[Rfam]
RNA sequence: AUUUACAAGCAGAGGCCAUCCGCUUCUCACCUUACAACGCAUCUGGCUGUUCGUAAGGUAUCAGGAUUUAGCAUAGUGAUUUAUGCUGUUUUUGCGGGUGGUGUAUGCCAUCCGCUUUAAAUUUUUUAU
Dot-bracket structure: ..........((((((.....)))))).(((....(((((.....)).))).....)))..................................(((((((((....)))))))))..............
Ribosomal protein L20 leader: a 129-nucleotide sequence from Anaerospora hongkongensis. NCBI's taxonomy places the organism under Bacteria, Bacillati, Bacillota, Sporomusaceae, Anaerospora. The base pairs follow the family's consensus structure, which was predicted with CMfinder.